[Rfam]
RNA sequence: UUUACGUCUGUAGUCAACAGGAUGAGAACCUCCGAAGGAGGUUUGAGCCGAGCGAAGCGAGACAACGUUGCGCAGCAACGGCCCGAAGGGGAAUAAUCCUCUCUCGCCGACCA
Numbered sequence: 001u002u003u004a005c006g007u008c009u010g011u012a013g014u015c016a017a018c019a020g021g022a023u024g025a026g027a028a029c030c031u032c033c034g035a036a037g038g039a040g041g042u043u044u045g046a047g048c049c050g051a052g053c054g055a056a057g058c059g060a061g062a063c064a065a066c067g068u069u070g071c072g073c074a075g076c077a078a079c080g081g082c083c084c085g086a087a088g089g090g091g092a093a094u095a096a097u098c099c100u101c102u103c104u105c106g107c108c109g110a111c112c113a
Base pairs, nucleotide, nucleotide: 017102019100020099021098023096042087043086044085045084049059050058066080067079068078069077070076071075